[Rfam]
RNA sequence: CGCGCGGCCCUGCCCGUCACGCCGGUGCGAAGCCGCAACUCGCCGUCGGAAGCGUCAAACGUCCACGCCAUCACAUGGUGAGCACGGUGCGGUAGUGCGCGCGGCCCU
Number, nucleotide and partner (000 for none) at each position: 001c000002g105003c104004g000005c000006g063007g062008c061009c000010c000011u058012g000013c000014c000015c000016g000017u000018c000019a000020c000021g000022c049023c048024g047025g046026u000027g044028c042029g041030a040031a000032g039033c000034c000035g000036c000037a000038a000039c032040u030041c029042g028043c000044c027045g000046u025047c024048g023049g022050a000051a000052g000053c000054g000055u000056c000057a000058a011059a000060c000061g008062u007063c006064c000065a000066c000067g000068c000069c000070a000071u081072c080073a079074c000075a000076u000077g000078g000079u073080g072081a071082g000083c000084a000085c099086g098087g000088u097089g096090c095091g000092g000093u000094a000095g090096u089097g088098c086099g085100c000101g000102c000103g000104g003105c002106c000107c000108u000